[Rfam]
RNA sequence: UCGCCCAACGGGGCUGUGGAUACCUGCCUUAUAAUUUAU
Numbered sequence: 001u002c003g004c005c006c007a008a009c010g011g012g013g014c015u016g017u018g019g020a021u022a023c024c025u026g027c028c029u030u031a032u033a034a035u036u037u038a039u
Stems, first nucleotide, its partner, number of pairs: 003014004017026003
RNA: XIST RNA A repeat
Organism: Fukomys damarensis